The family of this 72-nucleotide RNA is "DUF3800-X RNA".
RNA sequence: GAGCGAGUAAGUCCCUCUCGAAAGGAUGAUGCUGCUCAUGAGCAGGUGGGACGAUUAGAGAGGGGUUCACCA
Numbered sequence: 001g002a003g004c005g006a007g008u009a010a011g012u013c014c015c016u017c018u019c020g021a022a023a024g025g026a027u028g029a030u031g032c033u034g035c036u037c038a039u040g041a042g043c044a045g046g047u048g049g050g051a052c053g054a055u056u057a058g059a060g061a062g063g064g065g066u067u068c069a070c071c072a
Stems, first nucleotide, its partner, number of pairs: 003070001005068002012065008032045005

The sequence is in the family's curated seed alignment.